[Rfam]
RNA sequence: UGACGGAAGGACACCACCAGGCGUGGAGUGUGCGGGUUAAUUUGACUCAACGCGGGGCAACUUACCCGGGCCGCAGCCUCUUGAGAGGAAACCGAUGGGGCCUCGUGGUGCAUGGCCGUUCUCAACGCGAGGGGUGACCACUGAGUUAGUUCUGGCAAGCCGUGAGGCCCCUGUACUUUUGUAGACGGCGGACGGCAAGUCCGAGGAAGCGAGGGCGUAUAACAGGUCUGUGAUGCCCGCAGAUGUCCGGGGCUCCACGCGCACUACAAUAGCAAAUGGUAGACGAGAGUAAGUUUGUUGUGGUUGGGAUUGACGCUUGUAAAUGCGUCAUGAACGAGGAAUGCCUAGUAGUUGUCUGUCAGCAGCGGACAACGAAUAAGUCCCUGUUCUUUGUACACACCGCCCGUCGUUAUCUAAGAUGGCGGUGCGGAUGAAGCUGCUACGUGGCAAGAAUCCGUGCUGCUAGAUUGGAUACAAGUCGUAACAUGGUUGCAGUAGGUGAACCUGCCGCAGAUCAAGC
Numbered sequence: 001u002g003a004c005g006g007a008a009g010g011a012c013a014c015c016a017c018c019a020g021g022c023g024u025g026g027a028g029u030g031u032g033c034g035g036g037u038u039a040a041u042u043u044g045a046c047u048c049a050a051c052g053c054g055g056g057g058c059a060a061c062u063u064a065c066c067c068g069g070g071c072c073g074c075a076g077c078c079u080c081u082u083g084a085g086a087g088g089a090a091a092c093c094g095a096u097g098g099g100g101c102c103u104c105g106u107g108g109u110g111c112a113u114g115g116c117c118g119u120u121c122u123c124a125a126c127g128c129g130a131g132g133g134g135u136g137a138c139c140a141c142u143g144a145g146u147u148a149g150u151u152c153u154g155g156c157a158a159g160c161c162g163u164g165a166g167g168c169c170c171c172u173g174u175a176c177u178u179u180u181g182u183a184g185a186c187g188g189c190g191g192a193c194g195g196c197a198a199g200u201c202c203g204a205g206g207a208a209g210c211g212a213g214g215g216c217g218u219a220u221a222a223c224a225g226g227u228c229u230g231u232g233a234u235g236c237c238c239g240c241a242g243a244u245g246u247c248c249g250g251g252g253c254u255c256c257a258c259g260c261g262c263a264c265u266a267c268a269a270u271a272g273c274a275a276a277u278g279g280u281a282g283a284c285g286a287g288a289g290u291a292a293g294u295u296u297g298u299u300g301u302g303g304u305u306g307g308g309a310u311u312g313a314c315g316c317u318u319g320u321a322a323a324u325g326c327g328u329c330a331u332g333a334a335c336g337a338g339g340a341a342u343g344c345c346u347a348g349u350a351g352u353u354g355u356c357u358g359u360c361a362g363c364a365g366c367g368g369a370c371a372a373c374g375a376a377u378a379a380g381u382c383c384c385u386g387u388u389c390u391u392u393g394u395a396c397a398c399a400c401c402g403c404c405c406g407u408c409g410u411u412a413u414c415u416a417a418g419a420u421g422g423c424g425g426u427g428c429g430g431a432u433g434a435a436g437c438u439g440c441u442a443c444g445u446g447g448c449a450a451g452a453a454u455c456c457g458u459g460c461u462g463c464u465a466g467a468u469u470g471g472a473u474a475c476a477a478g479u480c481g482u483a484a485c486a487u488g489g490u491u492g493c494a495g496u497a498g499g500u501g502a503a504c505c506u507g508c509c510g511c512a513g514a515u516c517a518a519g520c
Stems, first nucleotide, its partner, number of pairs: 001397002003394003007391007016381002020345005025267001027265008035256002041056004065251007076101005087093002104239002107237004113233001114231001115227003118223003125163003132139002142155001144153002169215004174183002186206001189203005271299006306335001311330006351373008402485001405481002408478001411474007420465013438449004491512003495508005
Microsporidia small subunit ribosomal RNA: a 520-nucleotide part of an RNA from Parathelohania anophelis. Pairs were carried over by alignment from the consensus structure, which is taken from published work. Rfam links the family to the GO terms ribosome and structural constituent of ribosome. The organism belongs to Parathelohania, within Eukaryota. Clan: SSU clan. The sequence is in the family's curated seed alignment.